This 80-nucleotide RNA sequence from Tupaia belangeri belongs to the Rfam family "NoRC associated RNA, pRNA".
It is annotated as a non-coding RNA gene.
The base pairs follow the family's consensus structure, which is taken from published work.
It scores 36 bits against the family's covariance model.
The organism belongs to Tupaia belangeri, within Eukaryota.

RNA sequence: AGGAGGUGUCCUGUUUUGGGGCUCCCCCAGGCCCCCUGCUCCCCGGGCUGGGGGAUCUGUGAGGCUCCUGUGUCCGUUCG
Numbered sequence: 001a002g003g004a005g006g007u008g009u010c011c012u013g014u015u016u017u018g019g020g021g022c023u024c025c026c027c028c029a030g031g032c033c034c035c036c037u038g039c040u041c042c043c044c045g046g047g048c049u050g051g052g053g054g055a056u057c058u059g060u061g062a063g064g065c066u067c068c069u070g071u072g073u074c075c076g077u078u079c080g
Stems, first nucleotide, its partner, number of pairs: 004077001006075001008074001011072001018069004025063001027061001028059002031056001033054005